[Rfam]
RNA: Small nucleolar RNA SNORA9
Organism: Oreochromis aureus
RNA sequence: GUGCAGACUUUCCAGCGAGGCUCAGCCUGCAGUGGCUCUGUCCUUUCCUCUUGUGUCUGCUAGAGAAAUGUGAGGCUGUUUGAGGCCCUGCUGUGACCACUCUCACUGCAGGGUUAUAGGUAAACCUCCAACAUUA
Numbered sequence: 001g002u003g004c005a006g007a008c009u010u011u012c013c014a015g016c017g018a019g020g021c022u023c024a025g026c027c028u029g030c031a032g033u034g035g036c037u038c039u040g041u042c043c044u045u046u047c048c049u050c051u052u053g054u055g056u057c058u059g060c061u062a063g064a065g066a067a068a069u070g071u072g073a074g075g076c077u078g079u080u081u082g083a084g085g086c087c088c089u090g091c092u093g094u095g096a097c098c099a100c101u102c103u104c105a106c107u108g109c110a111g112g113g114u115u116a117u118a119g120g121u122a123a124a125c126c127u128c129c130a131a132c133a134u135u136a
Stems, first nucleotide, its partner, number of pairs: 003060006018044003024037004072128004086113006093106003